Rfam assigns this 109-nucleotide RNA from Mycolicibacterium grossiae to the family "TPP riboswitch aptamer (THI element)". Gene Ontology term of the family: thiamine pyrophosphate binding. Lineage of the source: Bacteria > Actinomycetota > Mycobacteriaceae > Mycobacterium > Mycobacterium (subgen. Mycolicibacterium).

RNA sequence: GUGACACCACACGGGAGCGCGCAACGGGCGCGCUGAGAGGACGGCUGGGCCGUCGACCGUACGAACCUGACCGGGUCAUGCCGGCGUAGGGAGUGAAGCGAUGACGACG
Numbered sequence: 001g002u003g004a005c006a007c008c009a010c011a012c013g014g015g016a017g018c019g020c021g022c023a024a025c026g027g028g029c030g031c032g033c034u035g036a037g038a039g040g041a042c043g044g045c046u047g048g049g050c051c052g053u054c055g056a057c058c059g060u061a062c063g064a065a066c067c068u069g070a071c072c073g074g075g076u077c078a079u080g081c082c083g084g085c086g087u088a089g090g091g092a093g094u095g096a097a098g099c100g101a102u103g104a105c106g107a108c109g
Base pairs, nucleotide, nucleotide: 008095009094010093011060012059013058014057017033018032019031020030021029040054041053042052043051044050066090067089068088069087071084072083073082074081